[Rfam]
The record is a 48-nucleotide RNA, which matches "ssnA RNA" in Rfam. The sequence is in the family's curated seed alignment. The family's RNA type in Rfam is cis-regulatory element.
RNA sequence: UAUUUGAUGACUGUUACGAAGUGUUGCGCAUACGGGUCAUUUCCUGCU
Numbered sequence: 001u002a003u004u005u006g007a008u009g010a011c012u013g014u015u016a017c018g019a020a021g022u023g024u025u026g027c028g029c030a031u032a033c034g035g036g037u038c039a040u041u042u043c044c045u046g047c048u
Stems, first nucleotide, its partner, number of pairs: 008039005021033004